[Rfam]
RNA sequence: GAAUGGAAUGAUGAUUACUUGUUUCCCUAUUGGUUUGAUUGCCUGGAUGAUGGCAAUUUUGUAUUAGCUCUAUCUGAUCAUUC
Numbered sequence: 001g002a003a004u005g006g007a008a009u010g011a012u013g014a015u016u017a018c019u020u021g022u023u024u025c026c027c028u029a030u031u032g033g034u035u036u037g038a039u040u041g042c043c044u045g046g047a048u049g050a051u052g053g054c055a056a057u058u059u060u061g062u063a064u065u066a067g068c069u070c071u072a073u074c075u076g077a078u079c080a081u082u083c
Stems, first nucleotide, its partner, number of pairs: 002082004037057001040055004